[Rfam]
RNA sequence: CGAGUCGGUCGGACGGUCGCGUGGCCUGGCACCAGGUCCCGAGGAACGUCCGGGCUCCGAAGGGCAAGGUGGUGGCUAACGGCCACCCGGGGCGACCCGCGGGACAGUGCCACAGAGAACAGACCGCCUCCGUCGGGCGACCGACGGCGGUAAGGGUGAAACGGUGGUGCAAGAGACCACCAGCGCCCCUGGUGACAGGGGCGGCUAGGUAAACCCCACCUGGAGCAAGGUCAGACAGACUGUGUUGGAGGGCGGCCCGCCCGAUUCUCCUCGGAGAAGCGCAGUCGGGUAGACCGCUCGAGCCCUGCGGCAACGCAGGGCCUAGAUGGAUGACCGUCACCCGGCCCCGGGCAACCAGGGCCGGGAACAGAACCCGGCGUACAGACCGGCUCGUCCG
Numbered sequence: 001c002g003a004g005u006c007g008g009u010c011g012g013a014c015g016g017u018c019g020c021g022u023g024g025c026c027u028g029g030c031a032c033c034a035g036g037u038c039c040c041g042a043g044g045a046a047c048g049u050c051c052g053g054g055c056u057c058c059g060a061a062g063g064g065c066a067a068g069g070u071g072g073u074g075g076c077u078a079a080c081g082g083c084c085a086c087c088c089g090g091g092g093c094g095a096c097c098c099g100c101g102g103g104a105c106a107g108u109g110c111c112a113c114a115g116a117g118a119a120c121a122g123a124c125c126g127c128c129u130c131c132g133u134c135g136g137g138c139g140a141c142c143g144a145c146g147g148c149g150g151u152a153a154g155g156g157u158g159a160a161a162c163g164g165u166g167g168u169g170c171a172a173g174a175g176a177c178c179a180c181c182a183g184c185g186c187c188c189c190u191g192g193u194g195a196c197a198g199g200g201g202c203g204g205c206u207a208g209g210u211a212a213a214c215c216c217c218a219c220c221u222g223g224a225g226c227a228a229g230g231u232c233a234g235a236c237a238g239a240c241u242g243u244g245u246u247g248g249a250g251g252g253c254g255g256c257c258c259g260c261c262c263g264a265u266u267c268u269c270c271u272c273g274g275a276g277a278a279g280c281g282c283a284g285u286c287g288g289g290u291a292g293a294c295c296g297c298u299c300g301a302g303c304c305c306u307g308c309g310g311c312a313a314c315g316c317a318g319g320g321c322c323u324a325g326a327u328g329g330a331u332g333a334c335c336g337u338c339a340c341c342c343g344g345c346c347c348c349g350g351g352c353a354a355c356c357a358g359g360g361c362c363g364g365g366a367a368c369a370g371a372a373c374c375c376g377g378c379g380u381a382c383a384g385a386c387c388g389g390c391u392c393g394u395c396c397g
Base pairs, nucleotide, nucleotide: 001393002392003391004390005389006388007387008386009385010384011382012338013337014336015335016334017333018332020041021040023038024037025036026035027034028033046380047379048378050377051376052375053374054373055225056224057223058222062272063271067221068220069219070218071217072086073085074084075083076082087101088099089098090097091096102216103215107214108213109210110209111208124155125154126151127150128149130147131146132145133144134143135142136141163181164180165179166178167177168176183205184203185202186201187200188199189198190197191196229295230294231293232292238286239285240284241283242282243281265278266277267276268275269274302321303320304319305318306317307316308315309314

The record is a 397-nucleotide RNA sequence from Xylanimonas protaetiae, which matches "Bacterial RNase P class A" in Rfam. The family's RNA type in Rfam is ribozyme. Rfam links the family to the GO terms ribonuclease P activity, dimeric ribonuclease P complex and tRNA processing.